[Rfam]
RNA sequence: GUUCUGUUUGUAGGAACACAAAGAAGCAGAUCUAUUCUAUACUCGAUAAGUACCAAUACGCAAUGG
Number, nucleotide and partner (000 for none) at each position: 001g000002u021003u020004c000005u018006g017007u016008u015009u014010g000011u000012a000013g000014g009015a008016a007017c006018a005019c000020a003021a002022a000023g000024a000025a000026g000027c000028a000029g000030a000031u000032c000033u000034a000035u000036u000037c000038u000039a000040u000041a000042c000043u066044c065045g000046a000047u000048a000049a000050g059051u058052a057053c000054c000055a000056a000057u052058a051059c050060g000061c000062a000063a000064u000065g044066g043
RNA: Plastid-clpP 5UTR RNA